[Rfam]
RNA sequence: UUCUUAUUCAGAGAGGUGGAGGGACUGGCCCUUCGAAGCCUCGGCAGCGGAUUCUUUUUAUUUAAGAACACCGUGCUAACUCCUGCGGCAUAAUUGCCGGAAAAUAAGAA
Numbered sequence: 001u002u003c004u005u006a007u008u009c010a011g012a013g014a015g016g017u018g019g020a021g022g023g024a025c026u027g028g029c030c031c032u033u034c035g036a037a038g039c040c041u042c043g044g045c046a047g048c049g050g051a052u053u054c055u056u057u058u059u060a061u062u063u064a065a066g067a068a069c070a071c072c073g074u075g076c077u078a079a080c081u082c083c084u085g086c087g088g089c090a091u092a093a094u095u096g097c098c099g100g101a102a103a104a105u106a107a108g109a110a
Base pairs, nucleotide, nucleotide: 001110002109003108004107005106006105007104008103013042014041015040016039017038021031022030023029025085027083028082043077044076045075046074048073049072050069052067053066081102086099087098088097089096090095